MIR6217 microRNA precursor family: a 227-nucleotide RNA from Miscanthus lutarioriparius.
RNA sequence: UAGCCAUAGAAUAACUUAUUCUAUGGCCACUUUGAGUUACGAUAAUUACCAUGCUAAUUUAUAAGAUUACAGUAACUCCUUACUAAGUGAUUUACUAUAACAUUAUUGUAAAUAUCACCGUGAAUUGUAGUAACACGAGUAUCGUAAAUGCAUAUUCAUUUUAUCGUAAAUUGAAACAAAUAUUAUUAUAAAUCAAGGUGGCUAUAGAAUAAGUUAUUGUAUGGCCA
Numbered sequence: 001u002a003g004c005c006a007u008a009g010a011a012u013a014a015c016u017u018a019u020u021c022u023a024u025g026g027c028c029a030c031u032u033u034g035a036g037u038u039a040c041g042a043u044a045a046u047u048a049c050c051a052u053g054c055u056a057a058u059u060u061a062u063a064a065g066a067u068u069a070c071a072g073u074a075a076c077u078c079c080u081u082a083c084u085a086a087g088u089g090a091u092u093u094a095c096u097a098u099a100a101c102a103u104u105a106u107u108g109u110a111a112a113u114a115u116c117a118c119c120g121u122g123a124a125u126u127g128u129a130g131u132a133a134c135a136c137g138a139g140u141a142u143c144g145u146a147a148a149u150g151c152a153u154a155u156u157c158a159u160u161u162u163a164u165c166g167u168a169a170a171u172u173g174a175a176a177c178a179a180a181u182a183u184u185a186u187u188a189u190a191a192a193u194c195a196a197g198g199u200g201g202c203u204a205u206a207g208a209a210u211a212a213g214u215u216a217u218u219g220u221a222u223g224g225c226c227a
Stems, first nucleotide, its partner, number of pairs: 001227001003225006010218024037191003041187006052176001055173008065165003069161001071159001072157001074155001080147004087142003091138002093132008103122001107117002